[Rfam]
Nucleotides: 106
Base pairs, nucleotide, nucleotide: 002098003097004096005095007093009090010089012086013085019079020078021077022076023075025074026073029072030071031070032069034067035066036065037064041059042058043057
Number, partner (000 for none) and nucleotide at each position: 001000a002098g003097g004096a005095g006000g007093a008000a009090c010089a011000a012086c013085c014000a015000u016000a017000g018000u019079g020078g021077u022076g023075g024000c025074g026073g027000c028000c029072a030071g031070c032069u033000a034067u035066g036065g037064a038000g039000c040000c041059c042058u043057g044000g045000a046000u047000u048000c049000a050000g051000c052000u053000c054000c055000u056000g057043c058042a059041g060000u061000a062000a063000c064037u065036c066035u067034g068000g069032a070031g071030c072029u073026c074025u075023c076022u077021g078020u079019c080000u081000g082000c083000a084000g085013g086012g087000c088000c089010u090009g091000g092000a093007u094000a095005c096004u097003c098002c099000g100000g101000g102000a103000g104000u105000g106000g
mir-8834 microRNA precursor family: a 106-nucleotide sequence from Canis lupus. Its family is annotated with miRNA-mediated post-transcriptional gene silencing and RISC complex in the Gene Ontology. Taxonomically the source falls in Canis lupus (Eukaryota, Tetrapoda, Mammalia, Caniformia).